[Rfam]
RNA: Small nucleolar RNA SNORA65
Organism: Sakesphorus luctuosus
RNA sequence: CCUGCCACUGUGCCUGUCCUGAUCUCCAUGGCUGGUACAUUCCAGUGGUGAGCUGAGAGCAAGCCCCAGGCAGGAAGCAGCUCUCCCCUGCCCGUGGGGAGGCCUGUGCCGAAAUCCUGGGGACAGGG
Numbered sequence: 001c002c003u004g005c006c007a008c009u010g011u012g013c014c015u016g017u018c019c020u021g022a023u024c025u026c027c028a029u030g031g032c033u034g035g036u037a038c039a040u041u042c043c044a045g046u047g048g049u050g051a052g053c054u055g056a057g058a059g060c061a062a063g064c065c066c067c068a069g070g071c072a073g074g075a076a077g078c079a080g081c082u083c084u085c086c087c088c089u090g091c092c093c094g095u096g097g098g099g100a101g102g103c104c105u106g107u108g109c110c111g112a113a114a115u116c117c118u119g120g121g122g123a124c125a126g127g128g
Stems, first nucleotide, its partner, number of pairs: 005048006018035002021032001024030001064121003068118001069116002073110002078106003082102002086098003